[Rfam]
RNA: Bacterial RNase P class A
RNA sequence: UGAGUCGGCCAGGCGGCCGCGUUCCCCGGGUUCGCUCGGGGACCGAGGAACGUCCGGGCUCCACAGGGCAGGGUGGUGGCUAACGGCCACCUGGGGUGACCCACGGGACAGUGCCACAGAGAGAAGACCGCCGCGCAGCUCCUUCGGGAGUCGCGAGGUGAGGGUGAAAGGGUGCGGUAAGAGCGCACCAGCGUGCCGGGUGACCGGUGCGGCUAGGUAAACCCCACCCGGAGCAAGGCCAGACAGGGAGCGAGCUGCCCGCUCGAUGCUCCCGGGUAGGCCGCUGGAGGCGUACGGCAACGUGCGUCGUAGAUGGAUGGUCGCCAUCCGUCGUCGGGAGACCGGCGGCGGGCACAGAACCCGGCGUAUCGGCCGGCUCAUCCC
Number, nucleotide and partner (000 for none) at each position: 001u380002g379003a378004g377005u376006c375007g374008g373009c372010c371011a369012g325013g324014c323015g322016g321017c320018c319019g000020c045021g044022u000023u042024c041025c040026c039027c038028g037029g000030g000031u000032u000033c000034g000035c000036u000037c028038g027039g026040g025041g024042a023043c000044c021045g020046a000047g000048g000049a000050a367051c366052g365053u000054c364055c363056g362057g361058g360059c233060u232061c231062c230063a000064c000065a000066g260067g259068g258069c257070a000071g229072g228073g227074u226075g225076g090077u089078g088079g087080c086081u000082a000083a000084c000085g000086g080087c079088c078089a077090c076091c105092u103093g102094g101095g100096g000097u000098g000099a000100c095101c094102c093103a092104c000105g091106g224107g223108a000109c000110a000111g222112u221113g218114c217115c216116a000117c000118a000119g000120a000121g000122a000123g000124a000125a000126g000127a000128c163129c162130g159131c158132c157133g000134c155135g154136c153137a000138g151139c150140u149141c148142c147143u000144u000145c000146g000147g142148g141149a140150g139151u138152c000153g136154c135155g134156a000157g132158g131159u130160g000161a000162g129163g128164g000165u000166g000167a000168a000169a000170g000171g189172g188173u187174g186175c185176g184177g000178u000179a000180a000181g000182a000183g000184c176185g175186c174187a173188c172189c171190a000191g213192c211193g210194u209195g208196c207197c206198g205199g204200g000201u000202g000203a000204c199205c198206g197207g196208u195209g194210c193211g192212g000213c191214u000215a000216g115217g114218u113219a000220a000221a112222c111223c107224c106225c075226a074227c073228c072229c071230g062231g061232a060233g059234c000235a000236a000237g282238g281239c280240c279241a000242g000243a000244c000245a000246g000247g273248g272249a000250g270251c265252g264253a263254g262255c261256u000257g069258c068259c067260c066261g255262c254263u253264c252265g251266a000267u000268g000269c000270u250271c000272c248273c247274g000275g000276g000277u000278a000279g240280g239281c238282c237283g000284c000285u000286g000287g000288a000289g308290g307291c306292g305293u304294a303295c302296g301297g000298c000299a000300a000301c296302g295303u294304g293305c292306g291307u290308c289309g000310u000311a000312g000313a000314u000315g000316g000317a000318u000319g018320g017321u016322c015323g014324c013325c012326a000327u000328c000329c000330g000331u000332c000333g000334u000335c000336g000337g000338g000339a000340g000341a000342c000343c000344g000345g000346c000347g000348g000349c000350g000351g000352g000353c000354a000355c000356a000357g000358a000359a000360c058361c057362c056363g055364g054365c052366g051367u050368a000369u011370c000371g010372g009373c008374c007375g006376g005377c004378u003379c002380a001381u000382c000383c000384c000